[Rfam]
SAM riboswitch aptamer (S box leader): a 121-nucleotide RNA from Desulfovibrio psychrotolerans. About the family: The SAM riboswitch is found upstream of a number of genes which code for proteins involved in methionine or cysteine biosynthesis in Gram-positive bacteria.
RNA sequence: AAAUCAUUAAGAAGGCGCGAGAGACCUGGCUCGUUGACCGCCUAGCAACCUGACAGCCCGCCCGCAUGUGCGGUGCCGGCCCAAGGUGCUACUGCCAGCCCGGUUCCGGGACCGAUGAGGA
Numbered sequence: 001a002a003a004u005c006a007u008u009a010a011g012a013a014g015g016c017g018c019g020a021g022a023g024a025c026c027u028g029g030c031u032c033g034u035u036g037a038c039c040g041c042c043u044a045g046c047a048a049c050c051u052g053a054c055a056g057c058c059c060g061c062c063c064g065c066a067u068g069u070g071c072g073g074u075g076c077c078g079g080c081c082c083a084a085g086g087u088g089c090u091a092c093u094g095c096c097a098g099c100c101c102g103g104u105u106c107c108g109g110g111a112c113c114g115a116u117g118a119g120g121a
Base pairs, nucleotide, nucleotide: 004118005117006116007115008114013043014042015041016040017039021032022031023030026098027097028096029095044090045089046088047087049086050085052081054079094113099110100109101108102107

NCBI's taxonomy places the organism under Bacteria, Pseudomonadati, Thermodesulfobacteriota, Desulfovibrionia, Desulfovibrio. It scores 58 bits against the family's covariance model.